[Rfam]
RNA sequence: UCUCUCUCACCUCUGAGUAGUUGCAUUUGGCUUCACCUAUGUGACUUUCAUAAUGAGGAGAGAGAGAAAAGAGCUCCUCAGGAGCGCAGAUUGGCCUUACAGUGGCUCCUCUUUCCUUAAGGGAUGGAACAGGU
Numbered sequence: 001u002c003u004c005u006c007u008c009a010c011c012u013c014u015g016a017g018u019a020g021u022u023g024c025a026u027u028u029g030g031c032u033u034c035a036c037c038u039a040u041g042u043g044a045c046u047u048u049c050a051u052a053a054u055g056a057g058g059a060g061a062g063a064g065a066g067a068a069a070a071g072a073g074c075u076c077c078u079c080a081g082g083a084g085c086g087c088a089g090a091u092u093g094g095c096c097u098u099a100c101a102g103u104g105g106c107u108c109c110u111c112u113u114u115c116c117u118u119a120a121g122g123g124a125u126g127g128a129a130c131a132g133g134u
Stems, first nucleotide, its partner, number of pairs: 002066007011058002014055002019046008075123004080118003088112003093107004